[Rfam]
Nucleotides: 105
Base pairs, nucleotide, nucleotide: 002077007027008026009025010024011023013021040102041100042099043097044096046091047090048089049088050087051086059081060080061079064076068075069074
Number, partner (000 for none) and nucleotide at each position: 001000a002077g003000c004000g005000a006000a007027g008026u009025g010024c011023a012000a013021a014000u015000u016000a017000g018000c019000a020000a021013u022000c023011u024010g025009c026008a027007c028000g029000u030000u031000u032000a033000g034000c035000c036000g037000c038000c039000a040102u041100g042099g043097u044096u045000u046091u047090a048089a049088c050087g051086g052000a053000u054000a055000u056000a057000g058000c059081c060080g061079a062000a063000g064076u065000a066000c067000a068075g069074g070000a071000u072000g073000a074069c075068c076064g077002c078000c079061u080060c081059g082000u083000a084000a085000g086051c087050c088049g089048u090047u091046a092000u093000g094000u095000a096044a097043a098000u099042c100041c101000c102040g103000a104000a105000a
The family of this 105-nucleotide sequence is "cow-rumen-2 RNA". The base pairs follow the family's consensus structure, which is taken from published work. The sequence is in the family's curated seed alignment.